[Rfam]
RNA sequence: CUCACGGCUUCGUCAACCAAACCGCAAUCUUGCCGCAAUCGCGCCGUGCGGCGGCCCCAGUGCGGCGCGAAAAACAGAGUGUUGCCUCGACGGCCCGGUCCAUUGUCCUUUCGGAUAAGUCAGCCCCCCAGCCCCCCGGACGUAUGGUGGGCCGGGCCAAUUUUCCAAGUCGGGGCAAUCCUUUUCCCCAUCGUCGCGAGCCGCCUUCAGGGCGGCUUUUCU
Numbered sequence: 001c002u003c004a005c006g007g008c009u010u011c012g013u014c015a016a017c018c019a020a021a022c023c024g025c026a027a028u029c030u031u032g033c034c035g036c037a038a039u040c041g042c043g044c045c046g047u048g049c050g051g052c053g054g055c056c057c058c059a060g061u062g063c064g065g066c067g068c069g070a071a072a073a074a075c076a077g078a079g080u081g082u083u084g085c086c087u088c089g090a091c092g093g094c095c096c097g098g099u100c101c102a103u104u105g106u107c108c109u110u111u112c113g114g115a116u117a118a119g120u121c122a123g124c125c126c127c128c129c130a131g132c133c134c135c136c137c138g139g140a141c142g143u144a145u146g147g148u149g150g151g152c153c154g155g156g157c158c159a160a161u162u163u164u165c166c167a168a169g170u171c172g173g174g175g176c177a178a179u180c181c182u183u184u185u186c187c188c189c190a191u192c193g194u195c196g197c198g199a200g201c202c203g204c205c206u207u208c209a210g211g212g213c214g215g216c217u218u219u220u221c222u
Base pairs, nucleotide, nucleotide: 037182039051041049042048084176085175086174087173088172089171090170092158093157094156095155096154097153098152099151100150101149102148106144108142110140111139112138113137114136123132124131198218199217200216201215202214203213204212205211
Background: The record is a 222-nucleotide RNA from Microvirga brassicacearum, which matches "Bradyrhizobiaceae sRNA BjrC174" in Rfam. For this family Rfam cites "Small RNAs of the Bradyrhizobium/Rhodopseudomonas lineage and their analysis" (Madhugiri et al., RNA Biol, 2012). The family's RNA type in Rfam is small RNA. Lineage of the source: Bacteria > Pseudomonadati > Alphaproteobacteria > Hyphomicrobiales > Microvirga.